[Rfam]
RNA sequence: CGUGCCAAAUGGAAGUCUGUAGAAGCGUGCUCGUCGCGACCCCUGCCAGCCCUUUUCAGGGCUGCAAUUCUACA
Numbered sequence: 001c002g003u004g005c006c007a008a009a010u011g012g013a014a015g016u017c018u019g020u021a022g023a024a025g026c027g028u029g030c031u032c033g034u035c036g037c038g039a040c041c042c043c044u045g046c047c048a049g050c051c052c053u054u055u056u057c058a059g060g061g062c063u064g065c066a067a068u069u070c071u072a073c074a
Stems, first nucleotide, its partner, number of pairs: 012043001015040003018074007025037003047064007